RNA sequence: AAGACUAUACUUUCAGGGAUCAUUUCUGUAGUUGGUCACUAGAGGAGAGUGAUCGCACGUGAUCGGCGUCACAAGCCACGAGGAGGAGCGGGGUGUUCUCUCCUGAGCGCGAAGCGGGCGGGCGGUGCUGCCUGGGCAGGGGCCGCUCGCCAUUGAUGACCGUUCCCGGCCUCGAUAGUGAGGCCUGGGAGGGAGAGAACACGGGCUGAGUGGU
Dot-bracket structure: .((..(..(((..(((((.....))))).)))..)...))..........(.((......)))...........(((((.............((((((((((((..(((.......((((..((((.((((....))))..))))..)))).........)))..(((((((((....))))))).))..)))))))))))).......)))))

Overview: Small nucleolar RNA U3: a 214-nucleotide RNA from Melanocharis versteri. The source organism's lineage runs through Eukaryota, Vertebrata, Saurischia, Passeriformes and Melanocharis. A reference for the family is Zwieb (1997), "The uRNA database", Nucleic Acids Res. Rfam's curators write: Small nucleolar RNAs (snoRNAs) are involved in the processing and modification of rRNA in the nucleolus. By type it is a C/D-box small nucleolar RNA. The family has 87 seed sequences and 19,072 matches in Rfam 15.1. The match comes from Rfam's covariance-model search (167 bits).